Description: This 72-nucleotide RNA sequence from Eubacterium aggregans belongs to the Rfam family "tRNA". Lineage of the source: Bacteria > Bacillota > Clostridia > Eubacteriaceae > Eubacterium. The base pairs follow the family's consensus structure, which is taken from published work.
[Rfam]
RNA sequence: UCCUCAGUAGCUCAAUGGUGGAGCACUCGGCUGUUAACCGAUAGGCUGUAGGUUCGAGUCCUACCUGAGGAG
Numbered sequence: 001u002c003c004u005c006a007g008u009a010g011c012u013c014a015a016u017g018g019u020g021g022a023g024c025a026c027u028c029g030g031c032u033g034u035u036a037a038c039c040g041a042u043a044g045g046c047u048g049u050a051g052g053u054u055c056g057a058g059u060c061c062u063a064c065c066u067g068a069g070g071a072g
Base pairs, nucleotide, nucleotide: 001071002070003069004068005067006066007065010024011023012022013021027041028040029039030038048064049063050062051061052060